[Rfam]
RNA sequence: CCGCUCACAAAGUGGUUGUGAUAUGCUGAUACGAGCGUUCAUAUCACAGCCAGCUUUGAUGAGCGUGG
Numbered sequence: 001c002c003g004c005u006c007a008c009a010a011a012g013u014g015g016u017u018g019u020g021a022u023a024u025g026c027u028g029a030u031a032c033g034a035g036c037g038u039u040c041a042u043a044u045c046a047c048a049g050c051c052a053g054c055u056u057u058g059a060u061g062a063g064c065g066u067g068g
Stems, first nucleotide, its partner, number of pairs: 005062003008058005013052009024043002
Rfam assigns this 68-nucleotide RNA sequence from Apis mellifera to the family "mir-2 microRNA precursor family". The literature on the family includes a 2001 paper in Science by Lee and Ambros, "An extensive class of small RNAs in Caenorhabditis elegans". Taxonomically the source falls in Apis (Eukaryota, Eumetabola, Hymenoptera, Apinae). It is one of the family's seed sequences. Pairs were carried over by alignment from the consensus structure, which was predicted with PFOLD.